A member of the RNA family "U1 spliceosomal RNA" from Camelus ferus, 164 nucleotides long. It scores 154 bits against the family's covariance model. Rfam links the family to the GO terms mRNA 5'-splice site recognition, U1 snRNP and pre-mRNA 5'-splice site binding.
RNA sequence: AUACUUACCUGGCAGGGGAAAUAUCAUGAUCAUGAAGGUGGUUUUCCCAGGGUAAGGCUCAUCCAUUGUACUCUGGAUGUGCUGACUCCUGCGAUUUCCCCAAAUGUGGGAAACUUGUCUGCGUAAUUUGUGGUAGUAGGGGCUUGUGUUCGCGCUUUCCCCUA
Numbered sequence: 001a002u003a004c005u006u007a008c009c010u011g012g013c014a015g016g017g018g019a020a021a022u023a024u025c026a027u028g029a030u031c032a033u034g035a036a037g038g039u040g041g042u043u044u045u046c047c048c049a050g051g052g053u054a055a056g057g058c059u060c061a062u063c064c065a066u067u068g069u070a071c072u073c074u075g076g077a078u079g080u081g082c083u084g085a086c087u088c089c090u091g092c093g094a095u096u097u098c099c100c101c102a103a104a105u106g107u108g109g110g111a112a113a114c115u116u117g118u119c120u121g122c123g124u125a126a127u128u129u130g131u132g133g134u135a136g137u138a139g140g141g142g143c144u145u146g147u148g149u150u151c152g153c154g155c156u157u158u159c160c161c162c163u164a
Base pairs, nucleotide, nucleotide: 012122013121014120015119016048017047018046019045020044021043023042024041025040026039027038049090050089051088052087056083057082058081060079061078062077063076064075092117093116094115095113096112097111099109100108138163139162140161141160142159146155147154148153